RNA sequence: ACUCGAAGGUUCCCAGCGGAGAGGAUGGACUCUUUUACGAGACCUCUCUAACAAUUAAAAAUAACCUUCGCAUAAUGAACAUUAGGCCAUCUCAAACGACGCUUUGAAUUUUCAAUUUUGGUGCGUCUUGAACCCUUUGGCUAUAUGCUC
Numbered sequence: 001a002c003u004c005g006a007a008g009g010u011u012c013c014c015a016g017c018g019g020a021g022a023g024g025a026u027g028g029a030c031u032c033u034u035u036u037a038c039g040a041g042a043c044c045u046c047u048c049u050a051a052c053a054a055u056u057a058a059a060a061a062u063a064a065c066c067u068u069c070g071c072a073u074a075a076u077g078a079a080c081a082u083u084a085g086g087c088c089a090u091c092u093c094a095a096a097c098g099a100c101g102c103u104u105u106g107a108a109u110u111u112u113c114a115a116u117u118u119u120g121g122u123g124c125g126u127c128u129u130g131a132a133c134c135c136u137u138u139g140g141c142u143a144u145a146u147g148c149u150c
Base pairs, nucleotide, nucleotide: 004070005069006068007067008066009065012021014019027047028046030041031040032039086141087140088139089138098127099126101124102123104121105120106119107118108117
The record is a 150-nucleotide RNA sequence from Phtheirospermum japonicum, which matches "Small nucleolar RNA snoR145" in Rfam. The base pairs follow the family's consensus structure, which was predicted with mfold. The match comes from Rfam's covariance-model search (73 bits). Rfam classes the family as an H/ACA-box small nucleolar RNA.